[Rfam]
Rfam assigns this 88-nucleotide sequence from Paenibacillus rigui to the family "c-di-GMP-I riboswitch aptamer". Lineage of the source: Bacteria > Bacillati > Bacillota > Paenibacillaceae > Paenibacillus. It scores 85 bits against the family's covariance model. The family has 155 seed sequences and 5,092 matches in Rfam 15.1. The base pairs follow the family's consensus structure, which is taken from published work. Gene Ontology term of the family: cyclic-di-GMP binding. From the family's description: GEMM was predicted in a large-scale screen for bacterial structured RNA regulatory elements.

RNA sequence: AACCGAUAAAGGCAAACCUGCUGAAAAGCAGGGACGCAAAGCUACGGACCUAACGGGAGCCUCUCCCUAUGGUAGCCGGGCCGCCGAA
Numbered sequence: 001a002a003c004c005g006a007u008a009a010a011g012g013c014a015a016a017c018c019u020g021c022u023g024a025a026a027a028g029c030a031g032g033g034a035c036g037c038a039a040a041g042c043u044a045c046g047g048a049c050c051u052a053a054c055g056g057g058a059g060c061c062u063c064u065c066c067c068u069a070u071g072g073u074a075g076c077c078g079g080g081c082c083g084c085c086g087a088a
Stems, first nucleotide, its partner, number of pairs: 012037002017032006041081003045078003048073003055067004